Record summary
The record is a 102-nucleotide sequence from Canis lupus, which matches "mir-8834 microRNA precursor family" in Rfam. The source organism's lineage runs through Eukaryota, Eutheria, Carnivora, Caniformia and Canis lupus.
[Rfam]
Nucleotides: 102
Base pairs, nucleotide, nucleotide: 002094003093005091006090007089009082010081011080016075017074019072022069025068026067027066028065029064030063031062033060037055038054039053
Number, partner (000 for none) and nucleotide at each position: 001000a002094g003093g004000a005091a006090c007089c008000a009082u010081c011080c012000c013000a014000g015000u016075g017074a018000c019072g020000c021000c022069g023000g024000c025068a026067g027066c028065u029064c030063u031062g032000g033060a034000g035000c036000c037055c038054u039053g040000g041000a042000u043000u044000c045000a046000g047000c048000u049000c050000c051000c052000a053039c054038a055037g056000u057000a058000a059000c060033u061000a062031u063030g064029g065028a066027g067026c068025u069022c070000u071000c072019c073000c074017u075016c076000u077000g078000c079000a080011g081010g082009g083000c084000c085000u086000g087000g088000a089007g090006g091005u092000g093003c094002c095000a096000a097000g098000g099000c100000g101000g102000g